[Rfam]
Nucleotides: 136
Base pairs, nucleotide, nucleotide: 003059004058005057006056007055008054010053013050014049016043017042018041019040020039022036024034025033026032061076063074065072066071084120085119086114087113088112090109091108093107094106095105096104
Number, partner (000 for none) and nucleotide at each position: 001000g002000u003059g004058c005057a006056c007055a008054g009000u010053g011000a012000a013050c014049a015000c016043c017042c018041a019040g020039g021000g022036g023000u024034g025033c026032u027000a028000c029000c030000a031000u032026g033025g034024c035000u036022c037000c038000c039020c040019c041018u042017g043016g044000u045000c046000u047000c048000u049014u050013g051000c052000a053010u054008c055007u056006g057005u058004g059003c060000g061076a062000u063074a064000g065072u066071a067000a068000a069000u070000c071066u072065g073000a074063u075000c076061u077000g078000u079000a080000c081000c082000u083000c084120u085119g086114c087113a088112u089000u090109a091108g092000a093107g094106g095105a096104g097000u098000c099000c100000a101000c102000u103000u104096c105095u106094c107093c108091c109090u110000a111000c112088a113087u114086g115000u116000a117000u118000u119085c120084a121000a122000c123000g124000g125000a126000u127000c128000a129000g130000a131000a132000u133000a134000u135000a136000c
Rfam assigns this 136-nucleotide RNA sequence from Sparus aurata to the family "Small nucleolar RNA SNORA22". The family's consensus secondary structure was predicted with RNAfold. The source organism's lineage runs through Eukaryota, Craniata, Neopterygii, Teleostei and Sparus. ACA22 is a member of the H/ACA class of snoRNA that guide the sites of modification of uridines to pseudouridines.